[Rfam]
RNA sequence: UGUCAUGCUUUUCCACAGCUUUCUUGAACUUUUUAUCGAUACAUACUCUUAGUUUUAUAAGAUGUAUAAAAUGUAAAAGUUCAAGAUAGCUGUGGGAAAACAUGGCGU
Numbered sequence: 001u002g003u004c005a006u007g008c009u010u011u012u013c014c015a016c017a018g019c020u021u022u023c024u025u026g027a028a029c030u031u032u033u034u035a036u037c038g039a040u041a042c043a044u045a046c047u048c049u050u051a052g053u054u055u056u057a058u059a060a061g062a063u064g065u066a067u068a069a070a071a072u073g074u075a076a077a078a079g080u081u082c083a084a085g086a087u088a089g090c091u092g093u094g095g096g097a098a099a100a101c102a103u104g105g106c107g108u
Base pairs, nucleotide, nucleotide: 003105004104005103006102007101013095014094015093017091018090019089020088022086024084025083026082027081029079030078031077032076033075

Source information:
Shown here is a 108-nucleotide RNA from Aquilegia coerulea, a member of the family "MIR396 microRNA precursor family". Gene Ontology terms of the family: miRNA-mediated post-transcriptional gene silencing and RISC complex. A search with the family's covariance model found it, with a score of 85 bits. Taxonomically the source falls in Aquilegia (Eukaryota, Streptophytina, Embryophyta, Spermatophyta).